[Rfam]
RNA sequence: GAAUAGAAUAAUUAAUCUGUGUGUAUAACCUCAAUAAUAUGGUUUGAGGGUCUCUACCAGGAACCGAUAAAUCCUGAUUACAACAAAUGUCACUUUCAU
Numbered sequence: 001g002a003a004u005a006g007a008a009u010a011a012u013u014a015a016u017c018u019g020u021g022u023g024u025a026u027a028a029c030c031u032c033a034a035u036a037a038u039a040u041g042g043u044u045u046g047a048g049g050g051u052c053u054c055u056a057c058c059a060g061g062a063a064c065c066g067a068u069a070a071a072u073c074c075u076g077a078u079u080a081c082a083a084c085a086a087a088u089g090u091c092a093c094u095u096u097c098a099u
Stems, first nucleotide, its partner, number of pairs: 018086001022082004029049006058076005